[Rfam]
RNA sequence: GUGCUUAAACUUUCCGAGUAAGGAAUUUCACGGCUACCAGAUGAGCUCUAGUGGCUAUGUAACCUCACAGGUUGCGACCAAUUUUUGGAGGGUAGAGGUCUCCCUUGGAUGACCAGCCUACGUUUGCUGGUUGUCCUUGUGCGGGAACUGCCCA
Numbered sequence: 001g002u003g004c005u006u007a008a009a010c011u012u013u014c015c016g017a018g019u020a021a022g023g024a025a026u027u028u029c030a031c032g033g034c035u036a037c038c039a040g041a042u043g044a045g046c047u048c049u050a051g052u053g054g055c056u057a058u059g060u061a062a063c064c065u066c067a068c069a070g071g072u073u074g075c076g077a078c079c080a081a082u083u084u085u086u087g088g089a090g091g092g093u094a095g096a097g098g099u100c101u102c103c104c105u106u107g108g109a110u111g112a113c114c115a116g117c118c119u120a121c122g123u124u125u126g127c128u129g130g131u132u133g134u135c136c137u138u139g140u141g142c143g144g145g146a147a148c149u150g151c152c153c154a
Stems, first nucleotide, its partner, number of pairs: 004023003008019001033055005039049002058076005090153004096149002099146004104139001107136005113130005
RNA: U12 minor spliceosomal RNA
Organism: Soboliphyme baturini